[Rfam]
RNA sequence: GUCUGACACGCGCCGACGGUGGCCAGUUUGGCCCCAUCAUUCGGUCGCGGCGCAAUGAC
Numbered sequence: 001g002u003c004u005g006a007c008a009c010g011c012g013c014c015g016a017c018g019g020u021g022g023c024c025a026g027u028u029u030g031g032c033c034c035c036a037u038c039a040u041u042c043g044g045u046c047g048c049g050g051c052g053c054a055a056u057g058a059c
Stems, first nucleotide, its partner, number of pairs: 007049001009047002013043001015042002018035002021033005
RNA: Selenocysteine insertion sequence 3